[Rfam]
RNA: MIR1444 microRNA precursor family
RNA sequence: UUUAUUCCUCGAAUAUUGAUCGAAUAUGGAUGAAAUAUGAUGAUGAAUUGUUUCGUCCACAUUCGGUCAAUGUUCGAGUAAUGAA
Numbered sequence: 001u002u003u004a005u006u007c008c009u010c011g012a013a014u015a016u017u018g019a020u021c022g023a024a025u026a027u028g029g030a031u032g033a034a035a036u037a038u039g040a041u042g043a044u045g046a047a048u049u050g051u052u053u054c055g056u057c058c059a060c061a062u063u064c065g066g067u068c069a070a071u072g073u074u075c076g077a078g079u080a081a082u083g084a085a
Stems, first nucleotide, its partner, number of pairs: 001085006008078006016070010027059002030056007